[Rfam]
RNA: tRNA
RNA sequence: GGGUGAUUAGCUCAGUUGGUUAGAGCACCUGCUCGACACGCAGGGGGUCAAUGGUUCAAAUCCGUUAUCGCCCA
Numbered sequence: 001g002g003g004u005g006a007u008u009a010g011c012u013c014a015g016u017u018g019g020u021u022a023g024a025g026c027a028c029c030u031g032c033u034c035g036a037c038a039c040g041c042a043g044g045g046g047g048u049c050a051a052u053g054g055u056u057c058a059a060a061u062c063c064g065u066u067a068u069c070g071c072c073c074a
Stems, first nucleotide, its partner, number of pairs: 001073007010026004028044005050066005